[Rfam]
RNA sequence: GGAAAGAAUCUGUUAAGCUCAGGAGGGAUAGCGCCUCUAUCUAUAUCUUAUAUUGCAUAUACAUGCAUCAUAUCAUAUCAUAUCUUGUGGCGCUAUCCAUCUUGAGCCUCACGGCUUCUUCCU
Number, nucleotide and partner (000 for none) at each position: 001g000002g000003a000004a000005a000006g000007a000008a000009u000010c114011u000012g000013u000014u000015a000016a000017g107018c106019u105020c104021a103022g102023g101024a100025g000026g098027g097028a096029u095030a094031g093032c092033g091034c090035c089036u000037c000038u000039a000040u000041c000042u000043a000044u000045a000046u000047c000048u000049u000050a000051u000052a000053u000054u000055g000056c000057a000058u000059a000060u000061a000062c000063a000064u000065g000066c000067a000068u000069c000070a000071u000072a000073u000074c000075a000076u000077a000078u000079c000080a000081u000082a000083u000084c000085u000086u000087g000088u000089g035090g034091c033092g032093c031094u030095a029096u028097c027098c026099a000100u024101c023102u022103u021104g020105a019106g018107c017108c000109u000110c000111a000112c000113g000114g010115c000116u000117u000118c000119u000120u000121c000122c000123u000
Shown here is a 123-nucleotide RNA from Lactuca sativa, a member of the family "MIR390 microRNA precursor family". Its family is annotated with RISC complex and miRNA-mediated post-transcriptional gene silencing in the Gene Ontology. A reference for the family is Gustafson et al. (2005), "ASRP: the Arabidopsis Small RNA Project Database", Nucleic Acids Res. NCBI's taxonomy places the organism under Eukaryota, Streptophytina, Gunneridae, Lactucinae, Lactuca. The family's consensus secondary structure was predicted with WAR.